Overview:
tRNA: a 73-nucleotide RNA from Capillibacterium thermochitinicola. By type it is a transfer RNA. Transfer RNA (tRNA) molecules are approximately 80 nucleotides in length. Gene Ontology term of the family: triplet codon-amino acid adaptor activity. NCBI's taxonomy places the organism under Bacteria, Bacillati, Bacillota, Capillibacterium.

Nucleotides: 073
Stems, first nucleotide, its partner, number of pairs: 001072007010025004027043005049065005
Number, partner (000 for none) and nucleotide at each position: 001072g002071g003070g004069u005068c006067a007066u008000u009000a010025g011024c012023u013022c014000a015000g016000g017000c018000g019000g020000u021000a022013g023012a024011g025010c026000a027043c028042c029041u030040g031039a032000c033000u034000u035000u036000u037000a038000a039031u040030c041029a042028g043027g044000g045000u046000g047000u048000c049065c050064g051063g052062c053061g054000u055000u056000c057000g058000a059000g060000u061053c062052g063051c064050c065049g066007a067006u068005g069004a070003c071002c072001c073000a